[Rfam]
RNA sequence: GGGGACGCGAAAGUGCCCCCAUAUAAGUGUGUAGAUAGCGUCCAUAUUGGCCUGUGGCGUGGUCUGUGAAUC
Numbered sequence: 001g002g003g004g005a006c007g008c009g010a011a012a013g014u015g016c017c018c019c020c021a022u023a024u025a026a027g028u029g030u031g032u033a034g035a036u037a038g039c040g041u042c043c044a045u046a047u048u049g050g051c052c053u054g055u056g057g058c059g060u061g062g063u064c065u066g067u068g069a070a071u072c
Stems, first nucleotide, its partner, number of pairs: 001019004006015003032066005038060003042057005
The record is a 72-nucleotide sequence, which matches "L13-Bacteroidia ribosomal protein leader" in Rfam. For this family Rfam cites "Discovery of 20 novel ribosomal leader candidates in bacteria and archaea" (Eckert and Weinberg, BMC Microbiol, 2020). The family's RNA type in Rfam is cis-regulatory leader.